[Rfam]
RNA sequence: AUCUGUUUGAUAGCGCCAGGCUUUAUUUAAGGUGACGAGGACCAAGUUUAUCGAAUUUCGGCGGAUGACUUGGAGGCUGUACAGUCUAUAGGGUGAGACAAAAGUCUAAGGACCACAAAACAUAGCCCAAGUACAAUA
Numbered sequence: 001a002u003c004u005g006u007u008u009g010a011u012a013g014c015g016c017c018a019g020g021c022u023u024u025a026u027u028u029a030a031g032g033u034g035a036c037g038a039g040g041a042c043c044a045a046g047u048u049u050a051u052c053g054a055a056u057u058u059c060g061g062c063g064g065a066u067g068a069c070u071u072g073g074a075g076g077c078u079g080u081a082c083a084g085u086c087u088a089u090a091g092g093g094u095g096a097g098a099c100a101a102a103a104g105u106c107u108a109a110g111g112a113c114c115a116c117a118a119a120a121c122a123u124a125g126c127c128c129a130a131g132u133a134c135a136a137u138a
Base pairs, nucleotide, nucleotide: 020033021032022031023030024029042073043072044071045070046069051061052060053059054058074087075086076085077084078083091128092127093126094125096123104113105112106111
This 138-nucleotide RNA sequence from Aerococcus urinaehominis belongs to the Rfam family "glmS glucosamine-6-phosphate activated ribozyme aptamer".
The organism belongs to Aerococcus, within Bacteria.
The family's consensus secondary structure is taken from published work.